[Rfam]
RNA sequence: CCUGUAGAUUUACCACCUACAGAACAUGCCAUCGAGUAAAACCCCGAACUAGGGUUAUUGGUAUGCCCACCUUAAUGAAUCGAAAGCAAGUAAAGUUAGCCAUGCAUGUAGGGCGGAUGUGAUUGUGAGUAGCGGUGUAUUAGCAGUGGCCGAGCUAAUA
Number, nucleotide and partner (000 for none) at each position: 001c000002c022003u021004g020005u019006a018007g017008a000009u000010u000011u000012a062013c061014c060015a059016c000017c007018u006019a005020c004021a003022g002023a000024a000025c108026a107027u106028g105029c104030c000031a000032u000033c000034g000035a000036g000037u000038a000039a000040a000041a000042c000043c000044c000045c000046g000047a000048a000049c000050u000051a000052g000053g068054g067055u000056u065057a064058u063059u015060g014061g013062u012063a058064u057065g056066c000067c054068c053069a000070c000071c000072u000073u000074a000075a000076u000077g000078a000079a000080u135081c134082g133083a000084a000085a000086g126087c125088a124089a123090g000091u121092a000093a120094a000095g118096u117097u116098a000099g114100c113101c112102a000103u110104g029105c028106a027107u026108g025109u000110a103111g000112g101113g100114c099115g000116g097117a096118u095119g000120u093121g091122a000123u089124u088125g087126u086127g000128a000129g000130u000131a000132g000133c082134g081135g080136u000137g000138u160139a159140u158141u157142a156143g155144c154145a000146g000147u000148g000149g000150c000151c000152g000153a000154g144155c143156u142157a141158a140159u139160a138
The record is a 160-nucleotide RNA sequence from Acinetobacter nectaris, which matches "Pseudomonadales-1 RNA" in Rfam. The sequence is in the family's curated seed alignment. The source organism's lineage runs through Bacteria, Pseudomonadati, Gammaproteobacteria, Moraxellaceae and Acinetobacter nectaris.